[Rfam]
RNA sequence: ACAGUUUUUUUUAAACAUUAAUAUCUCUCAUCGACAUUAGAUUUCUCCUGAAUCGACCUUGGUAGCAGUACCGAGGUUUUU
Numbered sequence: 001a002c003a004g005u006u007u008u009u010u011u012u013a014a015a016c017a018u019u020a021a022u023a024u025c026u027c028u029c030a031u032c033g034a035c036a037u038u039a040g041a042u043u044u045c046u047c048c049u050g051a052a053u054c055g056a057c058c059u060u061g062g063u064a065g066c067a068g069u070a071c072c073g074a075g076g077u078u079u080u081u
Base pairs, nucleotide, nucleotide: 056077057076058075059074060073061072062071063070
The record is an 81-nucleotide RNA from Stanieria cyanosphaera, which matches "Photosynthesis regulatory RNA1" in Rfam. Taxonomically the source falls in Stanieria cyanosphaera (Bacteria, Bacillati, Cyanobacteriota, Stanieria). A reference for the family is Georg et al. (2014), "The small regulatory RNA SyR1/PsrR1 controls photosynthetic functions in cyanobacteria", Plant Cell. The base pairs follow the family's consensus structure, which was predicted with CMfinder. Rfam 15.1 lists 92 matches to the family in 57 species. It is annotated as a small RNA. It scores 53 bits against the family's covariance model.